The family of this 102-nucleotide sequence from Lentibacillus cibarius is "Purine riboswitch aptamer".
[Rfam]
RNA sequence: CAAUUUCAUAGCUUAUUUUUUCAUAUAAUCGCGGGGAUAUGGCCUGCAAGUUUCUACCGGUUUACCGUAAAUAAACCGACUAUGAAAGAAAGCACCGUGUAU
Numbered sequence: 001c002a003a004u005u006u007c008a009u010a011g012c013u014u015a016u017u018u019u020u021u022c023a024u025a026u027a028a029u030c031g032c033g034g035g036g037a038u039a040u041g042g043c044c045u046g047c048a049a050g051u052u053u054c055u056a057c058c059g060g061u062u063u064a065c066c067g068u069a070a071a072u073a074a075a076c077c078g079a080c081u082a083u084g085a086a087a088g089a090a091a092g093c094a095c096c097g098u099g100u101a102u
Stems, first nucleotide, its partner, number of pairs: 018088008029049001031047005058078007
The literature on the family includes a 2003 paper in Cell by Mandal et al., "Riboswitches Control Fundamental Biochemical Pathways in Bacillus subtilis and Other Bacteria". NCBI's taxonomy places the organism under Bacteria, Bacillati, Bacilli, Caryophanales, Lentibacillus. It scores 87 bits against the family's covariance model. Its family is annotated with purine nucleobase biosynthetic process in the Gene Ontology.